Shown here is a 118-nucleotide sequence from Melghirimyces algeriensis, a member of the family "ylbH leader". The organism belongs to Melghirimyces, within Bacteria. On this family, see Barrick et al., Proc Natl Acad Sci U S A 2004: "New RNA motifs suggest an expanded scope for riboswitches in bacterial genetic control". This family is a putative regulatory RNA structure that is found upstream of the ylbH gene in B. subtilis and related low GC Gram-positive bacteria.

RNA sequence: AAAAAAAGGACCUGCGGAUCAAUCCGCAGGUUCAUGGGAUCCGAACAUGGUCGGAUCCUGAAUGGGAGAGGAGAAACCGGAGGAAGAGCUUAUGGGGAAACGUAAGUCUUCUCCGUGG
Numbered sequence: 001a002a003a004a005a006a007a008g009g010a011c012c013u014g015c016g017g018a019u020c021a022a023u024c025c026g027c028a029g030g031u032u033c034a035u036g037g038g039a040u041c042c043g044a045a046c047a048u049g050g051u052c053g054g055a056u057c058c059u060g061a062a063u064g065g066g067a068g069a070g071g072a073g074a075a076a077c078c079g080g081a082g083g084a085a086g087a088g089c090u091u092a093u094g095g096g097g098a099a100a101c102g103u104a105a106g107u108c109u110u111c112u113c114c115g116u117g118g
Stems, first nucleotide, its partner, number of pairs: 011030008031066005039056006078115004083111004088107005